[Rfam]
RNA sequence: GGCCUCCCUCUUUGGGGCAAUCGAUCGUGGGGAUCUACGAUCGGUUGCCCAGCAGAGGGAGGCC
Numbered sequence: 001g002g003c004c005u006c007c008c009u010c011u012u013u014g015g016g017g018c019a020a021u022c023g024a025u026c027g028u029g030g031g032g033a034u035c036u037a038c039g040a041u042c043g044g045u046u047g048c049c050c051a052g053c054a055g056a057g058g059g060a061g062g063c064c
Stems, first nucleotide, its partner, number of pairs: 001064011013052001015050016
RNA: mir-9242 microRNA precursor family